[Rfam]
RNA sequence: CGCCAGGGCAACCGUGGCUUUAGAUUGUUACUGUGUGGUGCGUGGGUAACAGUCUACAGCCAUGGUCGCUGGGCCGGA
Numbered sequence: 001c002g003c004c005a006g007g008g009c010a011a012c013c014g015u016g017g018c019u020u021u022a023g024a025u026u027g028u029u030a031c032u033g034u035g036u037g038g039u040g041c042g043u044g045g046g047u048a049a050c051a052g053u054c055u056a057c058a059g060c061c062a063u064g065g066u067c068g069c070u071g072g073g074c075c076g077g078a
Stems, first nucleotide, its partner, number of pairs: 012065002015062004023054010
A member of the RNA family "mir-132 microRNA precursor family" from Alligator mississippiensis, 78 nucleotides long. Rfam links the family to the GO terms RISC complex and miRNA-mediated post-transcriptional gene silencing. The match comes from Rfam's covariance-model search (77 bits). The family's consensus secondary structure was predicted with RNAalifold.